[Rfam]
RNA sequence: CCACCCUAACCUAAACAACACACACACAUCGACACCUGUGCCGGGGUGCCCCUUGCGGGUCGGUUACAUGGGAUGUGUGGAGGCCUAAC
Numbered sequence: 001c002c003a004c005c006c007u008a009a010c011c012u013a014a015a016c017a018a019c020a021c022a023c024a025c026a027c028a029u030c031g032a033c034a035c036c037u038g039u040g041c042c043g044g045g046g047u048g049c050c051c052c053u054u055g056c057g058g059g060u061c062g063g064u065u066a067c068a069u070g071g072g073a074u075g076u077g078u079g080g081a082g083g084c085c086u087a088a089c
Stems, first nucleotide, its partner, number of pairs: 023079008035070001037068003040064004048060004
This 89-nucleotide sequence from Aeromonas simiae belongs to the Rfam family "t44 RNA".
The match comes from Rfam's covariance-model search (76 bits).
Rfam classes the family as a small RNA.